[Rfam]
RNA sequence: AAAAAGGGUCGGUUGGCUAAUUAUGCCACGCUCGCCCUCGGUUGGCGAGUGCUGUAUGGCUAUCAAGACAUAUGGCCGACAUAAUUUGUGGAACCCAGUAGGGUUGGCUCGCUUGGCCGACCCUCUAU
Numbered sequence: 001a002a003a004a005a006g007g008g009u010c011g012g013u014u015g016g017c018u019a020a021u022u023a024u025g026c027c028a029c030g031c032u033c034g035c036c037c038u039c040g041g042u043u044g045g046c047g048a049g050u051g052c053u054g055u056a057u058g059g060c061u062a063u064c065a066a067g068a069c070a071u072a073u074g075g076c077c078g079a080c081a082u083a084a085u086u087u088g089u090g091g092a093a094c095c096c097a098g099u100a101g102g103g104u105u106g107g108c109u110c111g112c113u114u115g116g117c118c119g120a121c122c123c124u125c126u127a128u
Base pairs, nucleotide, nucleotide: 008080009079010078011077012076014028015027016026017025029051030050031049032048033047034046035045036044052075053074054073055072056071057070058069098126100124101123102122103121104120105119106118107117108116109115
A member of the RNA family "U11 spliceosomal RNA" from Senna tora, 128 nucleotides long. Rfam links the family to the GO terms U11 snRNP, pre-mRNA 5'-splice site binding and mRNA 5'-splice site recognition. For this family Rfam cites "Additional low-abundance human small nuclear ribonucleoproteins: U11, U12, etc" (Montzka and Steitz, Proc Natl Acad Sci U S A, 1988). The organism belongs to Senna, within Eukaryota.